This 84-nucleotide RNA from Dryobates pubescens belongs to the Rfam family "mir-184 microRNA precursor family". The literature on the family includes a 2005 paper in Genes Dev by Chen et al., "The developmental miRNA profiles of zebrafish as determined by small RNA cloning". NCBI's taxonomy places the organism under Eukaryota, Opisthokonta, Gnathostomata, Dinosauria, Dryobates.

RNA sequence: CCAUUCUCAUUCCCUUAUCACUUUUCCAGCCCAGCUUCUUCUCUCUAACUGUUGGACGGAGAACUGAUAAGGGUAUGCGAGUGG
Numbered sequence: 001c002c003a004u005u006c007u008c009a010u011u012c013c014c015u016u017a018u019c020a021c022u023u024u025u026c027c028a029g030c031c032c033a034g035c036u037u038c039u040u041c042u043c044u045c046u047a048a049c050u051g052u053u054g055g056a057c058g059g060a061g062a063a064c065u066g067a068u069a070a071g072g073g074u075a076u077g078c079g080a081g082u083g084g
Base pairs, nucleotide, nucleotide: 012073013072014071015070016069017068018067019066020065022063023062024061025060026059027058030055031054